[Rfam]
RNA sequence: UAAAAAUACAACACCCAGUAUUUUUGGCUGCCCGCGUAUUUCUCACCUACGGUUAGUCUCUCUAAGCUGGCAGAUAGAUGUUUAAUGAACCACUUAAGUUCCGUUGUGAAGUUUUUAGCCUUUCAGGUGUAUUUCAUAACACUACUGUAGUUCACACAUAC
Number, nucleotide and partner (000 for none) at each position: 001u000002a000003a000004a000005a000006a000007u000008a000009c000010a000011a000012c000013a000014c000015c070016c069017a068018g067019u066020a000021u000022u000023u000024u000025u000026g000027g057028c056029u055030g054031c000032c052033c051034g050035c000036g048037u000038a000039u000040u000041u000042c000043u000044c000045a000046c000047c000048u036049a000050c034051g033052g032053u000054u030055a029056g028057u027058c000059u000060c000061u000062c000063u000064a000065a000066g019067c018068u017069g016070g015071c000072a000073g000074a000075u000076a000077g000078a000079u000080g000081u000082u000083u000084a000085a000086u154087g153088a152089a151090c150091c000092a148093c147094u000095u000096a000097a000098g000099u000100u000101c000102c000103g140104u139105u138106g137107u136108g135109a134110a133111g132112u131113u000114u000115u000116u129117a128118g000119c126120c000121u000122u000123u000124c000125a000126g119127g000128u117129g116130u000131a112132u111133u110134u109135c108136a107137u106138a105139a104140c103141a000142c000143u000144a000145c000146u000147g093148u092149a000150g090151u089152u088153c087154a086155c000156a000157c000158a000159u000160a000161c000

The family of this 161-nucleotide sequence from Saccharomyces cariocanus is "Small nucleolar RNA snR161". A reference for the family is Schattner et al. (2004), "Genome-wide searching for pseudouridylation guide snoRNAs: analysis of the Saccharomyces cerevisiae genome", Nucleic Acids Res. The family's RNA type in Rfam is H/ACA-box small nucleolar RNA. The sequence is in the family's curated seed alignment. Clan: SNORA44 clan.